[Rfam]
RNA sequence: AUACCUUUCUCGGCCUUCAGGCUAAGAUUAAGUGUAGUAUUUGUUCUUAUUAGUUUAAUAUCUGAUGUGUAGGCCGUCGGCUCACUCUUUAUUAAAUUAAUAAUUUUUUGAGGGGGAGGGUCCCCUACAAGUGUAGUAUUUGUUCUUCGAAUAGUAAUCUGAUUACCAAAUCGAUGUAGAACGUGUUUUAGCCAUA
Numbered sequence: 001a002u003a004c005c006u007u008u009c010u011c012g013g014c015c016u017u018c019a020g021g022c023u024a025a026g027a028u029u030a031a032g033u034g035u036a037g038u039a040u041u042u043g044u045u046c047u048u049a050u051u052a053g054u055u056u057a058a059u060a061u062c063u064g065a066u067g068u069g070u071a072g073g074c075c076g077u078c079g080g081c082u083c084a085c086u087c088u089u090u091a092u093u094a095a096a097u098u099a100a101u102a103a104u105u106u107u108u109u110g111a112g113g114g115g116g117a118g119g120g121u122c123c124c125c126u127a128c129a130a131g132u133g134u135a136g137u138a139u140u141u142g143u144u145c146u147u148c149g150a151a152u153a154g155u156a157a158u159c160u161g162a163u164u165a166c167c168a169a170a171u172c173g174a175u176g177u178a179g180a181a182c183g184u185g186u187u188u189u190a191g192c193c194a195u196a
Stems, first nucleotide, its partner, number of pairs: 008027003012023004048067006069085002072082004113148006120141001125136004151189001153187004158180004
Dot-bracket structure: .......(((.((((....)))).)))....................((((((........)))))).((.((((...)))).))...........................((((((.(....((((....))))....).))))))..(.((((.((((...............))))...)))).).......
RNA: U2 spliceosomal RNA